Shown here is a 128-nucleotide RNA from Triticum urartu, a member of the family "U11 spliceosomal RNA".
Pairs were carried over by alignment from the consensus structure, which is taken from published work.
A search with the family's covariance model found it, with a score of 78 bits.
NCBI's taxonomy places the organism under Eukaryota, Magnoliopsida, Mesangiospermae, Liliopsida, Triticum.
RNA sequence: AAAAAGGGUCGGUUGGCUAUGUAUGCCACGUCCAUCCUUAGCUGAUGGGUGCUGUAUGGCUAUCAAGACAUAUGGCCGACAUAAUUUGUGGGACUCAAUAGGGUUGGCUCGUCAUGGCCGACCCUUCA
Dot-bracket structure: .......(((((.((((.......))))((((((((.......))))))))(((((((..........)))))))))))).................(..(.(((((.(((...)))))))))..)..